Description: A member of the RNA family "Group II catalytic intron D1-D4-3" from Ancylomarina longa, 171 nucleotides long. The base pairs follow the family's consensus structure. Rfam describes the family as follows. Group II introns are found in rRNA, tRNA and mRNA of organelles in fungi, plants and protists, and also in mRNA in bacteria.
[Rfam]
RNA sequence: CUUACCGCGAGGUAUAAUCUGAAGGAAGCCGGCGGCAAAUUUCCGACCUGAGGAAUACGAACAUCAUCAGGCAUAACCGUUGGGAUGAGUUUGCCAAACAAAACGAAGUCCAAAUACUACAUGGACAACGGGGUGUAAAUGAUGCGGGUACAUGGAAUGAAAGUUAUUUAC
Numbered sequence: 001c002u003u004a005c006c007g008c009g010a011g012g013u014a015u016a017a018u019c020u021g022a023a024g025g026a027a028g029c030c031g032g033c034g035g036c037a038a039a040u041u042u043c044c045g046a047c048c049u050g051a052g053g054a055a056u057a058c059g060a061a062c063a064u065c066a067u068c069a070g071g072c073a074u075a076a077c078c079g080u081u082g083g084g085a086u087g088a089g090u091u092u093g094c095c096a097a098a099c100a101a102a103a104c105g106a107a108g109u110c111c112a113a114a115u116a117c118u119a120c121a122u123g124g125a126c127a128a129c130g131g132g133g134u135g136u137a138a139a140u141g142a143u144g145c146g147g148g149u150a151c152a153u154g155g156a157a158u159g160a161a162a163g164u165u166a167u168u169u170a171c
Stems, first nucleotide, its partner, number of pairs: 003014004028171001031168002035164002041157005046149005062144005071136003077131006083111004089104004